[Rfam]
RNA: Small nucleolar RNA Z105
Organism: Miscanthus lutarioriparius
RNA sequence: CUGGCAUAAUGAGGAAAAACUAACUAGAUUUGUCUGAUCUAAUUGAUGAGAAAUACCUCCUACUCAUUCUGA
Numbered sequence: 001c002u003g004g005c006a007u008a009a010u011g012a013g014g015a016a017a018a019a020c021u022a023a024c025u026a027g028a029u030u031u032g033u034c035u036g037a038u039c040u041a042a043u044u045g046a047u048g049a050g051a052a053a054u055a056c057c058u059c060c061u062a063c064u065c066a067u068u069c070u071g072a
Stems, first nucleotide, its partner, number of pairs: 006067002009064001030051002034045001